[Rfam]
RNA sequence: CGGUUGCCAUAACUCCGAGCUCUGUUCGCUAAGUUCUCUCCUAGAAUAAGCCAGCUGAGCCAGUGACGAAAGGUCACAAGGGCAUAAUUGGAAAUGAUUGUGCCUCCCGUGUUUGGAAAGGUGUUCCGUGGCGCAACAA
Numbered sequence: 001c002g003g004u005u006g007c008c009a010u011a012a013c014u015c016c017g018a019g020c021u022c023u024g025u026u027c028g029c030u031a032a033g034u035u036c037u038c039u040c041c042u043a044g045a046a047u048a049a050g051c052c053a054g055c056u057g058a059g060c061c062a063g064u065g066a067c068g069a070a071a072g073g074u075c076a077c078a079a080g081g082g083c084a085u086a087a088u089u090g091g092a093a094a095u096g097a098u099u100g101u102g103c104c105u106c107c108c109g110u111g112u113u114u115g116g117a118a119a120g121g122u123g124u125u126c127c128g129u130g131g132c133g134c135a136a137c138a139a
Stems, first nucleotide, its partner, number of pairs: 011125003015121002019060004024055003028051002033047004063077005080105011106116002
The family of this 139-nucleotide sequence from Vibrio renipiscarius is "Molybdenum/Tungsten riboswitch aptamer (Moco RNA motif)". NCBI's taxonomy places the organism under Bacteria, Gammaproteobacteria, Vibrionales, Vibrionaceae, Vibrio.